[Rfam]
The family of this 52-nucleotide sequence from Consotaella salsifontis is "ffh sRNA". For this family Rfam cites "Identification of candidate structured RNAs in the marine organism 'Candidatus Pelagibacter ubique'" (Meyer et al., BMC Genomics, 2009).

RNA sequence: CAUGCCGGAGGUCCCCAUCCGCCAGCGAGUUUCGCCCGCGGAUGCGUUUUGC
Numbered sequence: 001c002a003u004g005c006c007g008g009a010g011g012u013c014c015c016c017a018u019c020c021g022c023c024a025g026c027g028a029g030u031u032u033c034g035c036c037c038g039c040g041g042a043u044g045c046g047u048u049u050u051g052c
Stems, first nucleotide, its partner, number of pairs: 016044007025035004
The source organism's lineage runs through Bacteria, Pseudomonadati, Alphaproteobacteria, Hyphomicrobiales and Consotaella.